[Rfam]
RNA sequence: CUUUUCACGUUUCCUUAUCAUUUCUUUUAUCCAGUUUUUAUCAGCACUGGACGGAGAACUGAUAAGGGCUUGUGUGGGA
Numbered sequence: 001c002u003u004u005u006c007a008c009g010u011u012u013c014c015u016u017a018u019c020a021u022u023u024c025u026u027u028u029a030u031c032c033a034g035u036u037u038u039u040a041u042c043a044g045c046a047c048u049g050g051a052c053g054g055a056g057a058a059c060u061g062a063u064a065a066g067g068g069c070u071u072g073u074g075u076g077g078g079a
Base pairs, nucleotide, nucleotide: 012068013067014066015065016064017063018062019061020060022058023057024056025055026054027053030050031049
The record is a 79-nucleotide RNA from Penaeus vannamei, which matches "mir-184 microRNA precursor family" in Rfam. Lineage of the source: Eukaryota > Arthropoda > Mandibulata > Altocrustacea > Penaeus. The base pairs follow the family's consensus structure, which was predicted with PFOLD. The family has 66 seed sequences and 948 matches in Rfam 15.1. Its family is annotated with gene silencing by miRNA and RISC complex in the Gene Ontology.